[Rfam]
RNA: L17 ribosomal protein downstream element
RNA sequence: AGAGUGUUAUGAUGUUGGAGCUUAUAGGCUCCGAGUCUAGCUCGUUGCUACUCCCUAGUAAGCUUACUAGGGAG
Numbered sequence: 001a002g003a004g005u006g007u008u009a010u011g012a013u014g015u016u017g018g019a020g021c022u023u024a025u026a027g028g029c030u031c032c033g034a035g036u037c038u039a040g041c042u043c044g045u046u047g048c049u050a051c052u053c054c055c056u057a058g059u060a061a062g063c064u065u066a067c068u069a070g071g072g073a074g
Stems, first nucleotide, its partner, number of pairs: 002043004011037003017032006051074009
Dot-bracket structure: .((((.....(((...((((((....))))))..)))..)))).......(((((((((......)))))))))